[Rfam]
Notes
This 342-nucleotide RNA from Aureitalea marina belongs to the Rfam family "Bacterial RNase P class A". The match comes from Rfam's covariance-model search (192 bits). The organism belongs to Aureitalea, within Bacteria. Gene Ontology terms of the family: dimeric ribonuclease P complex, tRNA processing and ribonuclease P activity.
RNA sequence: AGCGCAGGCCGCCUUAUCGCUGUGUACUAGGGCAUAGCUCAGUACAUGGAGGAAAGUCCGGACACCACAGGGAGGCAUAUCGGUUAACGGCCGACCCUUGUAGCACGUGCUACAGGGAGGACAAGUGCAACAGAAAGUAUGUACAGGUUAAGCUGUAGUGAAAUCAGGUAAACUCUAUGCGGUGAAAUGCCAUGUAUACCUGCGCCUGAGGGCGUCCCGCCCAAGCAGGAGGGUAGGCAGAUAGAGGUGUUUGGUAACAAACACUCCAGAUAAAUGAUAAGGUCGUGAACUGAGCUUGCUCUGGUUUACGGACAGAAUCCGGCUUACAGGCCUGCUUCCUUU
Numbered sequence: 001a002g003c004g005c006a007g008g009c010c011g012c013c014u015u016a017u018c019g020c021u022g023u024g025u026a027c028u029a030g031g032g033c034a035u036a037g038c039u040c041a042g043u044a045c046a047u048g049g050a051g052g053a054a055a056g057u058c059c060g061g062a063c064a065c066c067a068c069a070g071g072g073a074g075g076c077a078u079a080u081c082g083g084u085u086a087a088c089g090g091c092c093g094a095c096c097c098u099u100g101u102a103g104c105a106c107g108u109g110c111u112a113c114a115g116g117g118a119g120g121a122c123a124a125g126u127g128c129a130a131c132a133g134a135a136a137g138u139a140u141g142u143a144c145a146g147g148u149u150a151a152g153c154u155g156u157a158g159u160g161a162a163a164u165c166a167g168g169u170a171a172a173c174u175c176u177a178u179g180c181g182g183u184g185a186a187a188u189g190c191c192a193u194g195u196a197u198a199c200c201u202g203c204g205c206c207u208g209a210g211g212g213c214g215u216c217c218c219g220c221c222c223a224a225g226c227a228g229g230a231g232g233g234u235a236g237g238c239a240g241a242u243a244g245a246g247g248u249g250u251u252u253g254g255u256a257a258c259a260a261a262c263a264c265u266c267c268a269g270a271u272a273a274a275u276g277a278u279a280a281g282g283u284c285g286u287g288a289a290c291u292g293a294g295c296u297u298g299c300u301c302u303g304g305u306u307u308a309c310g311g312a313c314a315g316a317a318u319c320c321g322g323c324u325u326a327c328a329g330g331c332c333u334g335c336u337u338c339c340u341u342u
Stems, first nucleotide, its partner, number of pairs: 002337001004335007011327001012282007020049009054325003058322005063184004070218004075180005080094005095119001096117009120175002125173002127169002142157001144155003188239004199229005210222004246265008